[Rfam]
Description: The family of this 127-nucleotide sequence from Propithecus coquereli is "U8 small nucleolar RNA". Rfam 15.1 lists 1,597 matches to the family in 457 species. NCBI's taxonomy places the organism under Eukaryota, Deuterostomia, Lemuriformes, Indriidae, Propithecus. The base pairs follow the family's consensus structure, which is taken from published work. On this family, see Peculis, Mol Cell Biol 1997: "The sequence of the 5' end of the U8 small nucleolar RNA is critical for 5.8S and 28S rRNA maturation". The family's RNA type in Rfam is C/D-box small nucleolar RNA.
RNA sequence: UCAUCAGGCGGGGUAAUUACUUGUUUCUCUUUUUGAAGGUUAGAUUAGAACAUGAUAACUGGAGUUUGCAUGAUACAUGAUUAAUGUCUCUGUGUAAUAGAAAAAAAAAAAUAUUGUUUUUCUCUAU
Numbered sequence: 001u002c003a004u005c006a007g008g009c010g011g012g013g014u015a016a017u018u019a020c021u022u023g024u025u026u027c028u029c030u031u032u033u034u035g036a037a038g039g040u041u042a043g044a045u046u047a048g049a050a051c052a053u054g055a056u057a058a059c060u061g062g063a064g065u066u067u068g069c070a071u072g073a074u075a076c077a078u079g080a081u082u083a084a085u086g087u088c089u090c091u092g093u094g095u096a097a098u099a100g101a102a103a104a105a106a107a108a109a110a111a112u113a114u115u116g117u118u119u120u121u122c123u124c125u126a127u
Stems, first nucleotide, its partner, number of pairs: 021043003026039003030035001072090002075087003078083001094122001096120002099117001101115002